[Rfam]
RNA sequence: CUACCCCGCGUGGGAGAGUCCUGCCAGCUCCACCGCCUCAUGAGUCGCCGUUCCGUCGGCGACCGGCCGGCGGGGGCGGCGGGCGCCGAAGGGGCAACCCUCCCCGGAACCUCUCAGGCCAACGGACCGCGCGGGCGAG
Numbered sequence: 001c002u003a004c005c006c007c008g009c010g011u012g013g014g015a016g017a018g019u020c021c022u023g024c025c026a027g028c029u030c031c032a033c034c035g036c037c038u039c040a041u042g043a044g045u046c047g048c049c050g051u052u053c054c055g056u057c058g059g060c061g062a063c064c065g066g067c068c069g070g071c072g073g074g075g076g077c078g079g080c081g082g083g084c085g086c087c088g089a090a091g092g093g094g095c096a097a098c099c100c101u102c103c104c105c106g107g108a109a110c111c112u113c114u115c116a117g118g119c120c121a122a123c124g125g126a127c128c129g130c131g132c133g134g135g136c137g138a139g
Base pairs, nucleotide, nucleotide: 006134007133008132009131010130011129012128013127020083021082022081023080024079025078085119086118087117088115089114092113093112094111098107099106
Overview:
This 139-nucleotide RNA from Actinopolymorpha singaporensis belongs to the Rfam family "Glycine riboswitch aptamer". Rfam links the family to the GO term glycine biosynthetic process. Its Rfam clan is "Glycine riboswitch clan". Lineage of the source: Bacteria > Bacillati > Actinomycetota > Propionibacteriales > Actinopolymorpha. It scores 46 bits against the family's covariance model.